[Rfam]
RNA sequence: GUUCCAUAGCCAUUUUGGCAUUCUGUCCACCUCCAUUAAUGGGUUGUUUUAGAAUCACUUCAGAAGGUAACAAAUGGAGGUGGCCAGGAGGCCAAACGGGCUCUGUGAA
Numbered sequence: 001g002u003u004c005c006a007u008a009g010c011c012a013u014u015u016u017g018g019c020a021u022u023c024u025g026u027c028c029a030c031c032u033c034c035a036u037u038a039a040u041g042g043g044u045u046g047u048u049u050u051a052g053a054a055u056c057a058c059u060u061c062a063g064a065a066g067g068u069a070a071c072a073a074a075u076g077g078a079g080g081u082g083g084c085c086a087g088g089a090g091g092c093c094a095a096a097c098g099g100g101c102u103c104u105g106u107g108a109a
Stems, first nucleotide, its partner, number of pairs: 011099001015095005024086002027083008